Shown here is a 93-nucleotide sequence from Alkalicoccus daliensis, a member of the family "Glycine riboswitch aptamer". The match comes from Rfam's covariance-model search (46 bits). Rfam links the family to the GO term glycine biosynthetic process.
[Rfam]
RNA sequence: CAUCUCUGGAAAGUCCCGUUAUAUGGGCACCCAUGGGGAAACCUUUCUUUAAAAAAAGGAAAACUCUCAGGUCAAAAGGACAGAGGCGUACUG
Numbered sequence: 001c002a003u004c005u006c007u008g009g010a011a012a013g014u015c016c017c018g019u020u021a022u023a024u025g026g027g028c029a030c031c032c033a034u035g036g037g038g039a040a041a042c043c044u045u046u047c048u049u050u051a052a053a054a055a056a057a058g059g060a061a062a063a064c065u066c067u068c069a070g071g072u073c074a075a076a077a078g079g080a081c082a083g084a085g086g087c088g089u090a091c092u093g
Stems, first nucleotide, its partner, number of pairs: 001088001003086006015027004029072003033067001036066003042059005